Shown here is a 102-nucleotide RNA from Pan troglodytes, a member of the family "Y RNA".
[Rfam]
RNA sequence: GGCUGGUCUGAGUGCAGUGGUGUUUACAACUAAUCGAUCAAAACCAGUUACAAAUUUAUUCCUUCCUUCUCUAUUAUCACUGCUUCACUUGACCAGCCUUUA
Numbered sequence: 001g002g003c004u005g006g007u008c009u010g011a012g013u014g015c016a017g018u019g020g021u022g023u024u025u026a027c028a029a030c031u032a033a034u035c036g037a038u039c040a041a042a043a044c045c046a047g048u049u050a051c052a053a054a055u056u057u058a059u060u061c062c063u064u065c066c067u068u069c070u071c072u073a074u075u076a077u078c079a080c081u082g083c084u085u086c087a088c089u090u091g092a093c094c095a096g097c098c099u100u101u102a
Base pairs, nucleotide, nucleotide: 001098002097003096004095005094006093007092008091010090011089014086016081017080018079019078020077021076028064029063032060033059
The family's consensus secondary structure is taken from published work.
About the family: Y RNAs are components of the Ro ribonucleoprotein particle (Ro RNP), in association with Ro60 and La proteins.